RNA: Small nucleolar RNA Z122
Organism: Coffea arabica
RNA sequence: UUUGGGAAAUGAUGAGACUGUUAAACCAUUUUUGUUCAGAGGCUCUAUUAGAUUAUCUGGGUUGUGCUGAACAAUCUUUUGCACAUCAGUCUGAUUCCGAA
Numbered sequence: 001u002u003u004g005g006g007a008a009a010u011g012a013u014g015a016g017a018c019u020g021u022u023a024a025a026c027c028a029u030u031u032u033u034g035u036u037c038a039g040a041g042g043c044u045c046u047a048u049u050a051g052a053u054u055a056u057c058u059g060g061g062u063u064g065u066g067c068u069g070a071a072c073a074a075u076c077u078u079u080u081g082c083a084c085a086u087c088a089g090u091c092u093g094a095u096u097c098c099g100a101a
Base pairs, nucleotide, nucleotide: 001101002100003099004098005097006096007095